[Rfam]
RNA sequence: AGUGUAUAACGAAAUAACCUUCGUAUAUCCUUAGGAAUAAGGCCUAAGAGUCUCUACCGGAUUACCAUAAAUAAUCUGACUAUGAAGGCAGGAUAAAUAAGU
Number, nucleotide and partner (000 for none) at each position: 001a000002g000003u000004g000005u000006a000007u000008a000009a000010c000011g000012a000013a000014a000015u000016a000017a000018c088019c087020u086021u085022c084023g083024u082025a081026u000027a000028u000029c000030c048031u047032u046033a045034g044035g043036a000037a000038u000039a000040a000041g000042g000043c035044c034045u033046a032047a031048g030049a000050g000051u000052c000053u000054c000055u000056a000057c000058c078059g077060g076061a075062u074063u073064a072065c000066c000067a000068u000069a000070a000071a000072u064073a063074a062075u061076c060077u059078g058079a000080c000081u025082a024083u023084g022085a021086a020087g019088g018089c000090a000091g000092g000093a000094u000095a000096a000097a000098u000099a000100a000101g000102u000
Rfam assigns this 102-nucleotide RNA sequence from Halalkalibacter nanhaiisediminis to the family "Purine riboswitch aptamer". It scores 86 bits against the family's covariance model. The source organism's lineage runs through Bacteria, Bacilli, Caryophanales, Bacillaceae and Halalkalibacter. On this family, see Mandal et al., Cell 2003: "Riboswitches Control Fundamental Biochemical Pathways in Bacillus subtilis and Other Bacteria". Pairs were carried over by alignment from the consensus structure, which is taken from published work.